[Rfam]
RNA sequence: UCCGGGAAACCGACCAGACCCUUGGGCAGGGGCGGGGGACCCAGGAUUUUCUGCCGUUCCCCACGGCUUGGGGUGAAGCCGCAUCAGGUGGAAGAAGGAUUCCGCCCGAGGCGGCCGGGCCACCUCCCGGUCCGAACCCGACAGCUCACCUCGCAGGCGUGCGGAGAGGGACA
Numbered sequence: 001u002c003c004g005g006g007a008a009a010c011c012g013a014c015c016a017g018a019c020c021c022u023u024g025g026g027c028a029g030g031g032g033c034g035g036g037g038g039a040c041c042c043a044g045g046a047u048u049u050u051c052u053g054c055c056g057u058u059c060c061c062c063a064c065g066g067c068u069u070g071g072g073g074u075g076a077a078g079c080c081g082c083a084u085c086a087g088g089u090g091g092a093a094g095a096a097g098g099a100u101u102c103c104g105c106c107c108g109a110g111g112c113g114g115c116c117g118g119g120c121c122a123c124c125u126c127c128c129g130g131u132c133c134g135a136a137c138c139c140g141a142c143a144g145c146u147c148a149c150c151u152c153g154c155a156g157g158c159g160u161g162c163g164g165a166g167a168g169g170g171a172c173a
Stems, first nucleotide, its partner, number of pairs: 001031003032154006042070004071139003079114004117133004
RNA: c-di-AMP riboswitch aptamer (ydaO/yuaA leader)